[Rfam]
RNA sequence: AACUUUUACGAGGUAUCAGCACUUUUCUUUCAUGAGCGGGGAAGGAAGGAUGAAAAACACAAACCAGCCGUAGACUUUUGAGGUUUAAAUAGCCAGGUCCGGGCGCCUGGACGUGCUCUUCCAUUUUCCUGUAGCACUUCUCAGCAGAGUUCUGAUCCAGUUCCACUGCGGGUCAGCACGGGUAAGUGGCAGC
Numbered sequence: 001a002a003c004u005u006u007u008a009c010g011a012g013g014u015a016u017c018a019g020c021a022c023u024u025u026u027c028u029u030u031c032a033u034g035a036g037c038g039g040g041g042a043a044g045g046a047a048g049g050a051u052g053a054a055a056a057a058c059a060c061a062a063a064c065c066a067g068c069c070g071u072a073g074a075c076u077u078u079u080g081a082g083g084u085u086u087a088a089a090u091a092g093c094c095a096g097g098u099c100c101g102g103g104c105g106c107c108u109g110g111a112c113g114u115g116c117u118c119u120u121c122c123a124u125u126u127u128c129c130u131g132u133a134g135c136a137c138u139u140c141u142c143a144g145c146a147g148a149g150u151u152c153u154g155a156u157c158c159a160g161u162u163c164c165a166c167u168g169c170g171g172g173u174c175a176g177c178a179c180g181g182g183u184a185a186g187u188g189g190c191a192g193c
Stems, first nucleotide, its partner, number of pairs: 003019002007015003029149003033143004038138002041132001043130002049125004055120002073099005101116001103114003156188001158186001161182003166176003
Rfam assigns this 193-nucleotide RNA from Rhinopomastus cyanomelas to the family "Connexin-43 internal ribosome entry site (IRES)". Lineage of the source: Eukaryota > Dipnotetrapodomorpha > Theropoda > Rhinopomastidae > Rhinopomastus. Rfam describes the family as follows. This family represents the connexin-43 internal ribosome entry site (IRES) which allows cap independent translation during conditions such as heat shock and stress. Pairs were carried over by alignment from the consensus structure, which is taken from published work.